The family of this 102-nucleotide sequence from Brucella abortus is "rpsB sRNA".
[Rfam]
RNA sequence: CACACACGGGAUCAGGGCUUUUGCCGGGAGAAAUCCGGCCUCAGCCUCCGGUGGCGAGCAAUCGCCUCAGCCCGUGGAGGUUAAACCGGAAAAGGAAAAUAA
Number, nucleotide and partner (000 for none) at each position: 001c079002a000003c077004a000005c076006a075007c074008g073009g072010g071011a000012u000013c000014a000015g046016g045017g000018c000019u000020u000021u000022u000023g000024c000025c037026g036027g035028g000029a000030g000031a000032a000033a000034u000035c027036c026037g025038g000039c000040c000041u000042c000043a000044g000045c016046c015047u000048c000049c000050g000051g000052u000053g066054g065055c064056g063057a000058g000059c000060a000061a000062u000063c056064g055065c054066c053067u000068c000069a000070g000071c010072c009073c008074g007075u006076g005077g003078a000079g001080g000081u000082u000083a000084a000085a000086c000087c000088g000089g000090a000091a000092a000093a000094g000095g000096a000097a000098a000099a000100u000101a000102a000

It is annotated as a small RNA. On this family, see Meyer et al., BMC Genomics 2009: "Identification of candidate structured RNAs in the marine organism 'Candidatus Pelagibacter ubique'". The family's consensus secondary structure is taken from published work.